This 77-nucleotide RNA from Angiostrongylus costaricensis belongs to the Rfam family "mir-83 microRNA precursor family". Rfam 15.1 lists 60 matches to the family in 55 species.
RNA sequence: UAAGGGCGAAUUCUGGAUUUAUUUGCGGGCUGGACGAUGUUAUGAUCUAGCACCACGUAAAUUCAGCAUUUGAACUU
Number, nucleotide and partner (000 for none) at each position: 001u000002a000003a000004g000005g000006g000007c000008g000009a000010a000011u000012u000013c066014u065015g064016g063017a062018u061019u060020u059021a058022u057023u000024u055025g054026c000027g053028g000029g000030c050031u049032g000033g047034a046035c044036g043037a000038u000039g000040u000041u000042a000043u036044g035045a000046u034047c033048u000049a031050g030051c000052a000053c027054c025055a024056c000057g022058u021059a020060a019061a018062u017063u016064c015065a014066g013067c000068a000069u000070u000071u000072g000073a000074a000075c000076u000077u000
It scores 51 bits against the family's covariance model.